[Rfam]
RNA sequence: GUCCACUUCUCCGCUUGCACCCGUAUGGGUGAGCUACGGCCUUCGAGGCAAGGGAAGUAUUCAUUUCAAAGAGGC
Numbered sequence: 001g002u003c004c005a006c007u008u009c010u011c012c013g014c015u016u017g018c019a020c021c022c023g024u025a026u027g028g029g030u031g032a033g034c035u036a037c038g039g040c041c042u043u044c045g046a047g048g049c050a051a052g053g054g055a056a057g058u059a060u061u062c063a064u065u066u067c068a069a070a071g072a073g074g075c
Stems, first nucleotide, its partner, number of pairs: 005058007018031005039049003
RNA: Fibro-purF RNA